[Rfam]
Nucleotides: 085
Base pairs, nucleotide, nucleotide: 001083002082003081007078008077009076012072013071014070015069016068017067022063024061025060027059028058029057031054032053033052037050038049039048040047
Number, partner (000 for none) and nucleotide at each position: 001083u002082g003081a004000a005000g006000a007078g008077c009076u010000c011000u012072g013071a014070c015069a016068c017067u018000a019000a020000g021000a022063u023000g024061u025060g026000u027059g028058g029057c030000u031054g032053u033052c034000a035000u036000g037050g038049g039048u040047u041000g042000g043000u044000g045000a046000g047040a048039a049038c050037c051000a052033g053032g054031c055000u056000u057029g058028c059027c060025c061024a062000g063022a064000g065000c066000c067017a068016g069015u070014g071013u072012u073000c074000u075000c076009a077008g078007u079000g080000c081003u082002c083001a084000g085000u